[Rfam]
Shown here is an 84-nucleotide RNA sequence from Ornithorhynchus anatinus, a member of the family "Small nucleolar RNA SNORD60". It is annotated as a C/D-box small nucleolar RNA.
RNA sequence: AGCCGGUGAUGAGCUCCCACAUUUCUGACACCUCGUAUGAGUAUUGCACGAGCAAUACCUGAUUUUGCUUGGGUGCUGAGGCUG
Numbered sequence: 001a002g003c004c005g006g007u008g009a010u011g012a013g014c015u016c017c018c019a020c021a022u023u024u025c026u027g028a029c030a031c032c033u034c035g036u037a038u039g040a041g042u043a044u045u046g047c048a049c050g051a052g053c054a055a056u057a058c059c060u061g062a063u064u065u066u067g068c069u070u071g072g073g074u075g076c077u078g079a080g081g082c083u084g
Base pairs, nucleotide, nucleotide: 001083002082003081004080043056044055045054046053047052